[Rfam]
RNA sequence: ACUGAAUCUGUACUUACCCUUCAUAUAUCCUCGAUGAUAUGGAUCGAAAGUCUCUACCGGGCCGCCGUAAAUGGCCUGACUAUGAAGGCAGCAAUUUCGUGG
Numbered sequence: 001a002c003u004g005a006a007u008c009u010g011u012a013c014u015u016a017c018c019c020u021u022c023a024u025a026u027a028u029c030c031u032c033g034a035u036g037a038u039a040u041g042g043a044u045c046g047a048a049a050g051u052c053u054c055u056a057c058c059g060g061g062c063c064g065c066c067g068u069a070a071a072u073g074g075c076c077u078g079a080c081u082a083u084g085a086a087g088g089c090a091g092c093a094a095u096u097u098c099g100u101g102g
Stems, first nucleotide, its partner, number of pairs: 018088008031047005058078007
This 102-nucleotide RNA from Neobacillus piezotolerans belongs to the Rfam family "Purine riboswitch aptamer".
A search with the family's covariance model found it, with a score of 82 bits.